[Rfam]
RNA sequence: CCCUGACAGCCGCAUGAGGCGGCUGACUCUAGCCACGACAGGAGAUCUCAAUG
Numbered sequence: 001c002c003c004u005g006a007c008a009g010c011c012g013c014a015u016g017a018g019g020c021g022g023c024u025g026a027c028u029c030u031a032g033c034c035a036c037g038a039c040a041g042g043a044g045a046u047c048u049c050a051a052u053g
Stems, first nucleotide, its partner, number of pairs: 002042004007025005